[Rfam]
Shown here is a 95-nucleotide sequence from Magallana gigas, a member of the family "Z30 small nucleolar RNA".
Rfam classes the family as a C/D-box small nucleolar RNA.
Rfam links the family to the GO terms nucleolus and RNA processing.
The family's consensus secondary structure was predicted with PFOLD.
On this family, see Galardi et al., Mol Cell Biol 2002: "Purified box C/D snoRNPs are able to reproduce site-specific 2'-O-methylation of target RNA in vitro".
It scores 62 bits against the family's covariance model.
Nucleotides: 095
Stems, first nucleotide, its partner, number of pairs: 001094001003093002038055004
Number, partner (000 for none) and nucleotide at each position: 001094g002000u003093u004092u005000a006000a007000u008000g009000a010000u011000g012000a013000u014000u015000a016000g017000a018000u019000c020000a021000a022000u023000g024000c025000c026000u027000g028000a029000c030000u031000u032000g033000a034000u035000a036000u037000c038055a039054c040053c041052a042000u043000a044000a045000u046000g047000c048000u049000a050000a051000a052041u053040g054039g055038u056000g057000u058000u059000g060000a061000u062000c063000a064000a065000g066000a067000u068000a069000u070000g071000a072000c073000u074000a075000a076000u077000u078000a079000a080000u081000c082000u083000u084000c085000u086000c087000u088000c089000u090000g091000a092004a093003a094001u095000c